[Rfam]
RNA sequence: UAGACCUUAAUGAUGCCUCGAGCGUAAAAUCUCCGGAUUGGCUUGAGGCUGAUGAUGCUCGUCUA
Numbered sequence: 001u002a003g004a005c006c007u008u009a010a011u012g013a014u015g016c017c018u019c020g021a022g023c024g025u026a027a028a029a030u031c032u033c034c035g036g037a038u039u040g041g042c043u044u045g046a047g048g049c050u051g052a053u054g055a056u057g058c059u060c061g062u063c064u065a
Stems, first nucleotide, its partner, number of pairs: 001065005015049009029038003
Dot-bracket structure: (((((.........(((((((((.....(((....)))..)))))))))...........)))))
Selenocysteine insertion sequence 1: a 65-nucleotide RNA from Clupea harengus. Rfam 15.1 lists 3,793 matches to the family in 721 species.